Small nucleolar RNA SNORA51: a 130-nucleotide RNA from Rhinopithecus roxellana.

RNA sequence: GGCUUCCUGGCGCUUACCACAGGCUGAAUUCUUAUACCGACUGUAUAGAAAAGGAGGUAGAGUAAACUACCCCACAUACCCCUCAGCCAAGGCUCUGUGCCUGAUCUAUAUUGUGAAUGUGGGAACAGCG
Dot-bracket structure: .(((((((...........(((...(.((....)).)...)))........)))))))...........((.((..........((...((((.....))))...))..........)).))........
It is annotated as an H/ACA-box small nucleolar RNA. About the family: ACA51 is a member of the H/ACA class of snoRNA that guide the sites of modification of uridines to pseudouridines. Its family is annotated with nucleolus and RNA processing in the Gene Ontology.